Shown here is an 80-nucleotide RNA sequence from Electrophorus electricus, a member of the family "mir-203 microRNA precursor family". It scores 67 bits against the family's covariance model. On this family, see Lim et al., Science 2003: "Vertebrate microRNA genes". Rfam 15.1 lists 1,049 matches to the family in 464 species.
RNA sequence: CACAAUCUGACCAAGUGGUCCUAAACAUUUCACAAUUUUGGUAAAGAACUGUUGAACUGUUUAGAACCACUUGACCAAAG
Numbered sequence: 001c002a003c004a005a006u007c008u009g010a011c012c013a014a015g016u017g018g019u020c021c022u023a024a025a026c027a028u029u030u031c032a033c034a035a036u037u038u039u040g041g042u043a044a045a046g047a048a049c050u051g052u053u054g055a056a057c058u059g060u061u062u063a064g065a066a067c068c069a070c071u072u073g074a075c076c077a078a079a080g
Stems, first nucleotide, its partner, number of pairs: 014071006021064002024061004029056004